Source information:
nhaA-I RNA: a 49-nucleotide RNA.

[Rfam]
RNA sequence: GGGUGCAGCAAACUUGUUGCAGGAAUCUGAAAGGUCGGGCCGCCUUUUA
Numbered sequence: 001g002g003g004u005g006c007a008g009c010a011a012a013c014u015u016g017u018u019g020c021a022g023g024a025a026u027c028u029g030a031a032a033g034g035u036c037g038g039g040c041c042g043c044c045u046u047u048u049a
Stems, first nucleotide, its partner, number of pairs: 005020006028049004033044003
Notes:
Rfam describes the family as follows. Acidobacteria, Alphaproteobacteria, Betaproteobacteria and Gammaproteobacteria, Verrucomicrobia, cand. division NC10. The family's consensus secondary structure is taken from published work.